Record summary:
The record is a 77-nucleotide RNA sequence from Takifugu rubripes, which matches "mir-1 microRNA precursor family" in Rfam. The family's consensus secondary structure was predicted with RNAalifold. NCBI's taxonomy places the organism under Eukaryota, Clupeocephala, Eupercaria, Tetraodontiformes, Takifugu.
RNA sequence: GCUUGGGGCACAUCCUUCUUUAUAUGCCCAUAUGAACAUGAGCAACUGUGGAAUGUAAAGAAGUAUGUACCCCAGGA
Number, nucleotide and partner (000 for none) at each position: 001g000002c000003u000004u000005g000006g000007g071008g070009c000010a068011c067012a066013u065014c000015c063016u062017u061018c060019u059020u058021u057022a056023u055024a054025u053026g000027c000028c051029c050030a049031u048032a047033u000034g000035a000036a000037c000038a000039u000040g000041a000042g000043c000044a000045a000046c000047u032048g031049u030050g029051g028052a000053a025054u024055g023056u022057a021058a020059a019060g018061a017062a016063g015064u000065a013066u012067g011068u010069a000070c008071c007072c000073c000074a000075g000076g000077a000